[Rfam]
RNA sequence: UGCUUCCCGUCAGCAAUGGCAAAACUACCUUGUGAUAUAUUUGCACGGACGCUUCUUGCAUGGCAGAAAUAUAUGUGCUAAAUUCUGUUUCAUGUGUAAAUAUUACGCAGUUUAGUCGCACUCUAUAUUAAAAUUGUACGCAAGGUGAAAUAUUUUUUUUAAGGAG
Numbered sequence: 001u002g003c004u005u006c007c008c009g010u011c012a013g014c015a016a017u018g019g020c021a022a023a024a025c026u027a028c029c030u031u032g033u034g035a036u037a038u039a040u041u042u043g044c045a046c047g048g049a050c051g052c053u054u055c056u057u058g059c060a061u062g063g064c065a066g067a068a069a070u071a072u073a074u075g076u077g078c079u080a081a082a083u084u085c086u087g088u089u090u091c092a093u094g095u096g097u098a099a100a101u102a103u104u105a106c107g108c109a110g111u112u113u114a115g116u117c118g119c120a121c122u123c124u125a126u127a128u129u130a131a132a133a134u135u136g137u138a139c140g141c142a143a144g145g146u147g148a149a150a151u152a153u154u155u156u157u158u159u160u161a162a163g164g165a166g
Stems, first nucleotide, its partner, number of pairs: 001015004027146008036138001037103010051059002062089007107137005115124001